sroC RNA: a 161-nucleotide sequence from Salmonella enterica.
Rfam describes the family as follows. This family consists of a number of bacterial sroC RNA genes of around 160 bases in length. sroC is found in several Enterobacterial species. It base-pairs with GcvB. This interaction triggers the degradation of GcvB by RNase E, alleviating the GcvB-mediated mRNA repression of other amino acid-related transport and metabolic genes.
Its family is annotated with RNA binding and regulation of RNA stability in the Gene Ontology.
For this family Rfam cites "RNomics in Escherichia coli detects new sRNA species and indicates parallel transcriptional output in bacteria" (Vogel et al., Nucleic Acids Res, 2003).
The family's consensus secondary structure was predicted with PFOLD.
The sequence is in the family's curated seed alignment.
RNA sequence: ACUAACUAAAACUAAAUGGGACGGGACUCCUGUCCUCUCGAUUGUCGCUCAGCACGGACAGACUAUAAGCCUGAUGGUCGUUCCCCAUCGGGCCUGAAGCCGCAAAUCGCCGGGCAACAAUCUUCGAGGGUAGCGCUGCUACCCUUUUUUUUCGGAGUAGA
Numbered sequence: 001a002c003u004a005a006c007u008a009a010a011a012c013u014a015a016a017u018g019g020g021a022c023g024g025g026a027c028u029c030c031u032g033u034c035c036u037c038u039c040g041a042u043u044g045u046c047g048c049u050c051a052g053c054a055c056g057g058a059c060a061g062a063c064u065a066u067a068a069g070c071c072u073g074a075u076g077g078u079c080g081u082u083c084c085c086c087a088u089c090g091g092g093c094c095u096g097a098a099g100c101c102g103c104a105a106a107u108c109g110c111c112g113g114g115c116a117a118c119a120a121u122c123u124u125c126g127a128g129g130g131u132a133g134c135g136c137u138g139c140u141a142c143c144c145u146u147u148u149u150u151u152u153c154g155g156a157g158u159a160g161a
Base pairs, nucleotide, nucleotide: 012160013159014158019035020034021033022032023030024029036129037128038127039126040125041121042120043119044118045117047115048114055102056101057100059096060095061094069093070092071091072090073089074088075087076086077085